[Rfam]
RNA: Group II catalytic intron D1-D4-1
RNA sequence: AAAUCACGGUUGAAACAAGAUUUAUCAUGAGAAGUCAGCAGAUGCCAUAUUACCUCGUUUAGUCGACAAUACGGGGGAAGGGC
Number, nucleotide and partner (000 for none) at each position: 001a022002a021003a000004u020005c019006a000007c000008g016009g000010u014011u000012g000013a000014a010015a000016c008017a000018a000019g005020a004021u002022u001023u000024a000025u000026c000027a000028u000029g000030a000031g000032a000033a000034g043035u042036c041037a000038g000039c000040a000041g036042a035043u034044g083045c082046c081047a000048u000049a000050u000051u000052a000053c076054c075055u074056c073057g072058u071059u000060u000061a000062g000063u000064c000065g000066a000067c000068a000069a000070u000071a058072c057073g056074g055075g054076g053077g000078a000079a000080g000081g046082g045083c044